[Rfam]
RNA sequence: GCAGGCCUGUGUGCACAGUGACAGUCUGUGUCUGUGGAGCAGCUAGCUUGUGUUUUGCAUGCUGGCAGUUUCAUACACGCGUCCCCUGCAGCCCAAGACUAACAUGAGAUCAUAGUACUGGUCUAGUGAUGUCUUAAGAGACGCUCUUACCACUGGCCAGCCUCCAAUCUCUCAGACAUAG
Number, nucleotide and partner (000 for none) at each position: 001g000002c000003a000004g000005g000006c000007c000008u000009g000010u000011g000012u000013g089014c088015a087016c000017a000018g000019u000020g000021a000022c000023a000024g000025u000026c000027u000028g000029u081030g080031u079032c000033u077034g076035u073036g072037g071038a070039g069040c068041a000042g066043c065044u064045a063046g062047c000048u000049u059050g058051u057052g000053u000054u000055u000056u000057g051058c050059a049060u000061g000062c046063u045064g044065g043066c042067a000068g040069u039070u038071u037072c036073a035074u000075a000076c034077a033078c000079g031080c030081g029082u000083c000084c000085c000086c000087u015088g014089c013090a000091g000092c000093c000094c000095a000096a000097g000098a000099c000100u000101a000102a000103c000104a000105u174106g173107a172108g171109a170110u000111c000112a000113u000114a000115g000116u000117a000118c160119u159120g158121g157122u156123c155124u000125a154126g153127u152128g151129a000130u000131g144132u143133c000134u141135u140136a000137a000138g000139a000140g135141a134142c000143g132144c131145u000146c000147u000148u000149a000150c000151c128152a127153c126154u125155g123156g122157c121158c120159a119160g118161c000162c000163u000164c000165c000166a000167a000168u000169c000170u109171c108172u107173c106174a105175g000176a000177c000178a000179u000180a000181g000
Small nucleolar RNA SNORA23: a 181-nucleotide sequence from Xenopus laevis.
It is annotated as an H/ACA-box small nucleolar RNA.
It scores 124 bits against the family's covariance model.
Rfam describes the family as follows. The members of this family belong to the H/ACA class of snoRNAs which are thought to guide the sites of modification of uridines to pseudouridines. This family includes human snoRNA ACA23 (SNORA23) and mouse snoMBI-1.
NCBI's taxonomy places the organism under Eukaryota, Teleostomi, Tetrapoda, Pipidae, Xenopus.
The family has 9 seed sequences and 1,092 matches in Rfam 15.1.